The family of this 81-nucleotide RNA from Gordonia insulae is "ZMP/ZTP riboswitch aptamer (pfl RNA motif)". Pairs were carried over by alignment from the consensus structure, which is taken from published work. It scores 43 bits against the family's covariance model.
RNA sequence: CAUCAAGAACGCGACUGGCGUAGCCGGGAUGGACCGGCGUGGAGCGAACUGACAGGGACAUCGACCGCCUGGGUGUCCCGA
Numbered sequence: 001c002a003u004c005a006a007g008a009a010c011g012c013g014a015c016u017g018g019c020g021u022a023g024c025c026g027g028g029a030u031g032g033a034c035c036g037g038c039g040u041g042g043a044g045c046g047a048a049c050u051g052a053c054a055g056g057g058a059c060a061u062c063g064a065c066c067g068c069c070u071g072g073g074u075g076u077c078c079c080g081a
Base pairs, nucleotide, nucleotide: 003052004051006050007049010046011045012044015041017069018068019067020066024037025036026035027034058076059075060074061073062072